[Rfam]
RNA sequence: GUCGAGCCUAGGGCGGCCACCCGAAAACCGGACACCUUCACCGGCUGGCUCGGCGCUCUUCGUGAAGG
Numbered sequence: 001g002u003c004g005a006g007c008c009u010a011g012g013g014c015g016g017c018c019a020c021c022c023g024a025a026a027a028c029c030g031g032a033c034a035c036c037u038u039c040a041c042c043g044g045c046u047g048g049c050u051c052g053g054c055g056c057u058c059u060u061c062g063u064g065a066a067g068g
Base pairs, nucleotide, nucleotide: 001054002053003052004051005050006049007048008047011022012021013020028044029043030042031041035068036067037066038065039064040063